[Rfam]
RNA sequence: GGGGGCGUAGCUCAGCUGGGAGAGCGUUUGAAUGGCAUUCAAGAGGUCAUGGGUUCGAUCCCCACCGUCUCCA
Numbered sequence: 001g002g003g004g005g006c007g008u009a010g011c012u013c014a015g016c017u018g019g020g021a022g023a024g025c026g027u028u029u030g031a032a033u034g035g036c037a038u039u040c041a042a043g044a045g046g047u048c049a050u051g052g053g054u055u056c057g058a059u060c061c062c063c064a065c066c067g068u069c070u071c072c073a
Base pairs, nucleotide, nucleotide: 001072002071003070004069005068006067007066010025011024012023013022027043028042029041030040031039050064051063052062053061
Record summary:
This 73-nucleotide RNA sequence from Butyricicoccus pullicaecorum belongs to the Rfam family "tRNA". The organism belongs to Butyricicoccus pullicaecorum, within Bacteria. Transfer RNA (tRNA) molecules are approximately 80 nucleotides in length. The base pairs follow the family's consensus structure, which is taken from published work. A search with the family's covariance model found it, with a score of 54 bits. It is annotated as a transfer RNA. Gene Ontology term of the family: triplet codon-amino acid adaptor activity.